Nucleotides: 251
Base pairs, nucleotide, nucleotide: 001251002250003249004248005247006246007245008244009243012242013241014240015236016235017234018233042222043221044220045055048108049107050106051105052104053103064102065101074092075091077089078088100229121215122214123213124212125211126162127161128160129159130158131157132156166208167207168206169205175200176199182190183189184188
Number, partner (000 for none) and nucleotide at each position: 001251c002250u003249u004248a005247c006246c007245c008244a009243g010000g011000u012242c013241u014240g015236u016235g017234g018233u019000u020000g021000c022000g023000g024000g025000c026000g027000c028000c029000a030000g031000c032000g033000c034000c035000c036000u037000a038000g039000u040000c041000c042222a043221u044220g045055g046000c047000a048108g049107a050106c051105g052104a053103g054000g055045c056000c057000a058000a059000a060000g061000g062000g063000a064102u065101c066000c067000a068000c069000g070000u071000a072000a073000g074092u075091c076000c077089g078088g079000g080000c081000g082000u083000g084000c085000g086000c087000g088078u089077c090000c091075g092074g093000g094000c095000g096000a097000g098000c099000a100229u101065g102064g103053c104052u105051c106050g107049u108048c109000c110000u111000a112000g113000a114000g115000g116000u117000a118000a119000g120000u121215c122214g123213c124212a125211c126162c127161g128160c129159c130158c131157g132156u133000c134000a135000u136000a137000c138000u139000c140000a141000g142000a143000g144000g145000c146000a147000u148000a149000c150000g151000g152000c153000c154000u155000c156132g157131c158130g159129g160128g161127c162126g163000a164000g165000a166208g167207g168206g169205c170000c171000u172000c173000c174000a175200g176199u177000c178000a179000g180000g181000g182190c183189c184188g185000c186000c187000g188184c189183g190182g191000c192000g193000g194000u195000c196000a197000c198000g199176g200175c201000a202000a203000a204000a205169g206168c207167c208166c209000c210000a211125g212124u213123g214122c215121g216000c217000g218000a219000g220044u221043g222042u223000g224000g225000g226000g227000u228000c229100a230000a231000a232000u233018a234017c235016c236015a237000g238000g239000u240014c241013a242012g243009c244008u245007g246006g247005g248004u249003a250002a251001g

Annotation: The family of this 251-nucleotide sequence from Olsenella sp. oral taxon 809 is "raiA RNA". It is annotated as a riboswitch.